[Rfam]
RNA sequence: CCUCUGGAGAGAGUCUAUUGUAAGGCCACCCAAGGGGAAGAAUCUCUUGAUUAUCCAGUCAAGAGAUGAAAGCUCUCAGGUAAAAGGACAGAGG
Numbered sequence: 001c002c003u004c005u006g007g008a009g010a011g012a013g014u015c016u017a018u019u020g021u022a023a024g025g026c027c028a029c030c031c032a033a034g035g036g037g038a039a040g041a042a043u044c045u046c047u048u049g050a051u052u053a054u055c056c057a058g059u060c061a062a063g064a065g066a067u068g069a070a071a072g073c074u075c076u077c078a079g080g081u082a083a084a085a086g087g088a089c090a091g092a093g094g
Base pairs, nucleotide, nucleotide: 001094002093003092004091005090006089013026014025015024016023028081029080030079032076035075036074037073042067043066044065045064046063047062048061049060050059051058052057
Rfam assigns this 94-nucleotide RNA from Ammoniphilus sp. CFH 90114 to the family "Glycine riboswitch aptamer".